[Rfam]
RNA sequence: GGGCUGGCUUUAGCUCAGCGGUUCCUUCGACGGUGCAUUGCUUUCGAUCCUCUGCAUCUGGCAGAGCCGGUUCGAGACCCGCGGGCGCUCUCCAGCCCUUUU
Numbered sequence: 001g002g003g004c005u006g007g008c009u010u011u012a013g014c015u016c017a018g019c020g021g022u023u024c025c026u027u028c029g030a031c032g033g034u035g036c037a038u039u040g041c042u043u044u045c046g047a048u049c050c051u052c053u054g055c056a057u058c059u060g061g062c063a064g065a066g067c068c069g070g071u072u073c074g075a076g077a078c079c080c081g082c083g084g085g086c087g088c089u090c091u092c093c094a095g096c097c098c099u100u101u102u
Base pairs, nucleotide, nucleotide: 002097003096004095005094006093007092013086014085015084016083018082019081020080021079026076027075028074029073030072
RNA: Vault RNA
Organism: Otolemur garnettii